[Rfam]
RNA: permuted transfer-messenger RNA
Organism: Puniceispirillum marinum
RNA sequence: GGCGAUAAACGUGCUGUGUAAUAAGCAGAGCGGACCCGGGGGCGGUACCCGGCGCCUCCACCAUAUCAGCUCACCCCUUUAGUUUUAUAAAAUUGGGUCAAUCAGGAGCUGAUAGCAUGGGGGCGAAAUAGGAUCGACGCAUGUAGUAAAGGCAGUAUUUUCGUUCGGUAUGGUACCCACCGUUAUCGGGCCAUGUAGUAGUUGCAAAUGACAACACUGCUCCGGUAGCAAUCGCAGCCUAA
Numbered sequence: 001g002g003c004g005a006u007a008a009a010c011g012u013g014c015u016g017u018g019u020a021a022u023a024a025g026c027a028g029a030g031c032g033g034a035c036c037c038g039g040g041g042g043c044g045g046u047a048c049c050c051g052g053c054g055c056c057u058c059c060a061c062c063a064u065a066u067c068a069g070c071u072c073a074c075c076c077c078u079u080u081a082g083u084u085u086u087a088u089a090a091a092a093u094u095g096g097g098u099c100a101a102u103c104a105g106g107a108g109c110u111g112a113u114a115g116c117a118u119g120g121g122g123g124c125g126a127a128a129u130a131g132g133a134u135c136g137a138c139g140c141a142u143g144u145a146g147u148a149a150a151g152g153c154a155g156u157a158u159u160u161u162c163g164u165u166c167g168g169u170a171u172g173g174u175a176c177c178c179a180c181c182g183u184u185a186u187c188g189g190g191c192c193a194u195g196u197a198g199u200a201g202u203u204g205c206a207a208a209u210g211a212c213a214a215c216a217c218u219g220c221u222c223c224g225g226u227a228g229c230a231a232u233c234g235c236a237g238c239c240u241a242a
Stems, first nucleotide, its partner, number of pairs: 001165005014155004026143002030140003036052005053125007166182004